[Rfam]
RNA sequence: CUCCCCGAAAUGUUUUUAGGAACAGCGUGGUGGUUAAGUUAUAUAGAGGUAGAGCUACUGAUUGGGUGCGGGGGAGUCAAAUCCUACCAAAUCCAGACAAACUCCGAAUGCUAUAUAAUAUACACUGCAGUGAGGCCCGGGGUGCUAAGGUCACGGGCCGAGAGGGAAAGAACCCAGACCAUCAGCUAAGGUCCCCAAGUUAUAGUUAAGUUGAACUAACGAGGUCCGAUUGCAUAGACAGCUAGGAUGUUGGCUUGGAAGCAGCCAUUCAUUUAAAGAGUGCGUAACAGCUCACUAGUCGAGCGAUCGGGCAUGGAUAAUAAACGGGCAUUAAACUAUACACCGAAGCUAUGGGUAAUAUUAAUAUUACGGUAGGGGAGCAUUCCAGCGGCAGCGAAGUUAUGACGUAAGUUGUGGUGGAGCUUCUGGAAAAGCAAAU
Numbered sequence: 001c002u003c004c005c006c007g008a009a010a011u012g013u014u015u016u017u018a019g020g021a022a023c024a025g026c027g028u029g030g031u032g033g034u035u036a037a038g039u040u041a042u043a044u045a046g047a048g049g050u051a052g053a054g055c056u057a058c059u060g061a062u063u064g065g066g067u068g069c070g071g072g073g074g075a076g077u078c079a080a081a082u083c084c085u086a087c088c089a090a091a092u093c094c095a096g097a098c099a100a101a102c103u104c105c106g107a108a109u110g111c112u113a114u115a116u117a118a119u120a121u122a123c124a125c126u127g128c129a130g131u132g133a134g135g136c137c138c139g140g141g142g143u144g145c146u147a148a149g150g151u152c153a154c155g156g157g158c159c160g161a162g163a164g165g166g167a168a169a170g171a172a173c174c175c176a177g178a179c180c181a182u183c184a185g186c187u188a189a190g191g192u193c194c195c196c197a198a199g200u201u202a203u204a205g206u207u208a209a210g211u212u213g214a215a216c217u218a219a220c221g222a223g224g225u226c227c228g229a230u231u232g233c234a235u236a237g238a239c240a241g242c243u244a245g246g247a248u249g250u251u252g253g254c255u256u257g258g259a260a261g262c263a264g265c266c267a268u269u270c271a272u273u274u275a276a277a278g279a280g281u282g283c284g285u286a287a288c289a290g291c292u293c294a295c296u297a298g299u300c301g302a303g304c305g306a307u308c309g310g311g312c313a314u315g316g317a318u319a320a321u322a323a324a325c326g327g328g329c330a331u332u333a334a335a336c337u338a339u340a341c342a343c344c345g346a347a348g349c350u351a352u353g354g355g356u357a358a359u360a361u362u363a364a365u366a367u368u369a370c371g372g373u374a375g376g377g378g379a380g381c382a383u384u385c386c387a388g389c390g391g392c393a394g395c396g397a398a399g400u401u402a403u404g405a406c407g408u409a410a411g412u413u414g415u416g417g418u419g420g421a422g423c424u425u426c427u428g429g430a431a432a433a434g435c436a437a438a439u
Base pairs, nucleotide, nucleotide: 001380002379003378004377005376006375011024012023013022014021015020026130027128028127029126030125031124032123037121038119039118040117041116042115043114044113045112046111052105053103054102059099060098063095064094065093066092070088071087072085073084074083075082134159135158136157137156138155139154141152142151143150164175165174166173179354180353181352182351184350185349186348190344191343192342199341201340202339203338204337205336206335220315221314224312225311226310227309228308229307230306231305232304233303241299242298243297244296245295247272248271249270252266253265254264273277278293282291283290355370356369357368358367359366360365381434383431384430385429386428387427388426390424391423392422399418400417401416402415403414404413405412406411

A member of the RNA family "Bacterial large subunit ribosomal RNA" from Pedobacter sp. PACM 27299, 439 nucleotides of a longer RNA. Gene Ontology terms of the family: structural constituent of ribosome and ribosome. The family's consensus secondary structure is taken from published work.